Shown here is a 69-nucleotide sequence from Esox lucius, a member of the family "miR-430 microRNA precursor family". The family's consensus secondary structure was predicted with RNAalifold. The family is grouped with related families in Rfam's "mir-290 clan". Rfam 15.1 lists 24,817 matches to the family in 105 species. The organism belongs to Esox, within Eukaryota. It scores 48 bits against the family's covariance model. The literature on the family includes a 2005 paper in Science by Giraldez et al., "MicroRNAs regulate brain morphogenesis in zebrafish".

[Rfam]
RNA sequence: AAUUGUACUUCAACUUGAGCACCUUUCUUUUCCAAGCCACAGAAAGUGCUAUUAGUUGGGGUAUGGUUU
Numbered sequence: 001a002a003u004u005g006u007a008c009u010u011c012a013a014c015u016u017g018a019g020c021a022c023c024u025u026u027c028u029u030u031u032c033c034a035a036g037c038c039a040c041a042g043a044a045a046g047u048g049c050u051a052u053u054a055g056u057u058g059g060g061g062u063a064u065g066g067u068u069u
Stems, first nucleotide, its partner, number of pairs: 004065008013056003017052001018050004023046002026043003